[Rfam]
RNA sequence: UAUUUUCUUAUUUGUAAGUCGCUUUGGAUAAAAGCAUCUGCUAAAUGACUAAAA
Number, nucleotide and partner (000 for none) at each position: 001u000002a000003u000004u000005u000006u000007c000008u000009u000010a000011u000012u000013u043014g041015u040016a039017a000018g000019u000020c000021g035022c034023u033024u032025u031026g000027g000028a000029u000030a000031a025032a024033a023034g022035c021036a000037u000038c000039u016040g015041c014042u000043a013044a000045a000046u000047g000048a000049c000050u000051a000052a000053a000054a000
This 54-nucleotide RNA from Sinocyclocheilus grahami belongs to the Rfam family "UnaL2 LINE 3' element". It is annotated as a cis-regulatory element. The eel long interspersed element (LINE) UnaL2 and its partner short interspersed element (SINE) share a conserved 3' tail containing a stem-loop that is critical for their retrotransposition. Presumably, the first step of retrotransposition is the recognition of their 3' tails by UnaL2-encoded reverse transcriptase. The solution structure of a 17-nucleotide RNA derived from the 3' tail of UnaL2 was determined by NMR. Lineage of the source: Eukaryota > Metazoa > Bilateria > Osteoglossocephalai > Sinocyclocheilus. A search with the family's covariance model found it, with a score of 68 bits.